[Rfam]
RNA sequence: UUUUAUCACCGGGGGUGCUUUGCAGCGAUUCGUGUUGCAAGGCUGAGAAAAACCCUUAAAACCUGCUCUGGUUAAUACCUGCGGAGGGAGUGUGAUGGUUAGAGAUA
Numbered sequence: 001u002u003u004u005a006u007c008a009c010c011g012g013g014g015g016u017g018c019u020u021u022g023c024a025g026c027g028a029u030u031c032g033u034g035u036u037g038c039a040a041g042g043c044u045g046a047g048a049a050a051a052a053c054c055c056u057u058a059a060a061a062c063c064u065g066c067u068c069u070g071g072u073u074a075a076u077a078c079c080u081g082c083g084g085a086g087g088g089a090g091u092g093u094g095a096u097g098g099u100u101a102g103a104g105a106u107a
Stems, first nucleotide, its partner, number of pairs: 006095004011056004016050001017043011062087003068081001070079002
The family of this 107-nucleotide RNA from Legionella feeleii is "TPP riboswitch aptamer (THI element)". The source organism's lineage runs through Bacteria, Pseudomonadati, Gammaproteobacteria, Legionellaceae and Legionella. Vitamin B(1) in its active form thiamin pyrophosphate (TPP) is an essential coenzyme that is synthesised by coupling of pyrimidine and thiazole moieties in bacteria.